[Rfam]
RNA sequence: GGGGGCGCUAUAGCCAAGUGGUUACGGCGACAGAUUAGAAUCUCGGAUUAUCUGUUUCCCUUUGGGAGCGCAGGUUCGAGUCCUGCUGGCGUCGCUUUGUUUU
Number, nucleotide and partner (000 for none) at each position: 001g000002g098003g097004g096005g095006c094007g093008c000009u000010a000011u000012a000013g090014c089015c088016a087017a000018g086019u085020g084021g083022u000023u000024a000025c000026g000027g000028c078029g077030a076031c000032a000033g000034a000035u000036u000037a000038g000039a000040a000041u000042c000043u000044c000045g000046g000047a000048u000049u000050a000051u000052c000053u000054g000055u000056u000057u000058c000059c000060c000061u000062u000063u000064g000065g000066g000067a000068g000069c000070g000071c000072a000073g000074g000075u000076u030077c029078g028079a000080g000081u000082c000083c021084u020085g019086c018087u016088g015089g014090c013091g000092u000093c007094g006095c005096u004097u003098u002099g000100u000101u000102u000103u000
RNA: Vault RNA